[Rfam]
RNA sequence: CCAGUCGGUCGGGCGGCCGCAUGUGCAAAUGCCGAAAGGCUGCAUGUGAGGAAAGUCCGGGCUCCAUGGAACAACGGUGCCGGGUAACGCCCGGCGGGGGUGACCCCAGGGACAGUGCCACAGAAAGCAAACCGCCCGCGGGCCUUCGGGCUGGCGGGCAAGGGUGAAAGGGUGGUGUAAGAGACCACCGCGUUGCCUGGUAACAGGCGCGGCAAGGUAAACCCCACCGGGAGCAAAACCGAGUAGGGACGGGACGAGGGAAACCCUCAAGGCGGUUCCAGCCUGCCCGUCCGGGUUGGUUGCUUCAGGCCGGCAGCAAUGCCGGCCGCAGAUGAAUGGCCGUCACGUCGCAGCUUCGGCUGUGGCCAUACAGAACCCGGCUUACAGACCGGCUGGCGCU
Numbered sequence: 001c002c003a004g005u006c007g008g009u010c011g012g013g014c015g016g017c018c019g020c021a022u023g024u025g026c027a028a029a030u031g032c033c034g035a036a037a038g039g040c041u042g043c044a045u046g047u048g049a050g051g052a053a054a055g056u057c058c059g060g061g062c063u064c065c066a067u068g069g070a071a072c073a074a075c076g077g078u079g080c081c082g083g084g085u086a087a088c089g090c091c092c093g094g095c096g097g098g099g100g101u102g103a104c105c106c107c108a109g110g111g112a113c114a115g116u117g118c119c120a121c122a123g124a125a126a127g128c129a130a131a132c133c134g135c136c137c138g139c140g141g142g143c144c145u146u147c148g149g150g151c152u153g154g155c156g157g158g159c160a161a162g163g164g165u166g167a168a169a170g171g172g173u174g175g176u177g178u179a180a181g182a183g184a185c186c187a188c189c190g191c192g193u194u195g196c197c198u199g200g201u202a203a204c205a206g207g208c209g210c211g212g213c214a215a216g217g218u219a220a221a222c223c224c225c226a227c228c229g230g231g232a233g234c235a236a237a238a239c240c241g242a243g244u245a246g247g248g249a250c251g252g253g254a255c256g257a258g259g260g261a262a263a264c265c266c267u268c269a270a271g272g273c274g275g276u277u278c279c280a281g282c283c284u285g286c287c288c289g290u291c292c293g294g295g296u297u298g299g300u301u302g303c304u305u306c307a308g309g310c311c312g313g314c315a316g317c318a319a320u321g322c323c324g325g326c327c328g329c330a331g332a333u334g335a336a337u338g339g340c341c342g343u344c345a346c347g348u349c350g351c352a353g354c355u356u357c358g359g360c361u362g363u364g365g366c367c368a369u370a371c372a373g374a375a376c377c378c379g380g381c382u383u384a385c386a387g388a389c390c391g392g393c394u395g396g397c398g399c400u
Stems, first nucleotide, its partner, number of pairs: 001396010011385001012344007020048008053383003057380005062233004073276001075229005080094005095109001096107004110224002115222002117218003132163002134159006141152004171189006190213001191211003195208005237301004247292006270284004308327008
Bacterial RNase P class A: a 400-nucleotide sequence from Nitratireductor basaltis.
The organism belongs to Nitratireductor, within Bacteria.